[Rfam]
RNA sequence: GAAGGUUCUCGGGUGACACACCCUAGAAUUGGGCUCCCUCCUCUCUGGUUCUGGGUGCAUCACCCCAGAACUGCA
Numbered sequence: 001g002a003a004g005g006u007u008c009u010c011g012g013g014u015g016a017c018a019c020a021c022c023c024u025a026g027a028a029u030u031g032g033g034c035u036c037c038c039u040c041c042u043c044u045c046u047g048g049u050u051c052u053g054g055g056u057g058c059a060u061c062a063c064c065c066c067a068g069a070a071c072u073g074c075a
Stems, first nucleotide, its partner, number of pairs: 005071005011065006019057005025052009
Notes
The record is a 75-nucleotide sequence from Myotis myotis, which matches "mir-9223 microRNA precursor family" in Rfam. It scores 74 bits against the family's covariance model. The family's consensus secondary structure was predicted with RNAalifold. Gene Ontology terms of the family: miRNA-mediated post-transcriptional gene silencing and RISC complex. Lineage of the source: Eukaryota > Tetrapoda > Boreoeutheria > Chiroptera > Myotis. Rfam 15.1 lists 14,641 matches to the family in 28 species.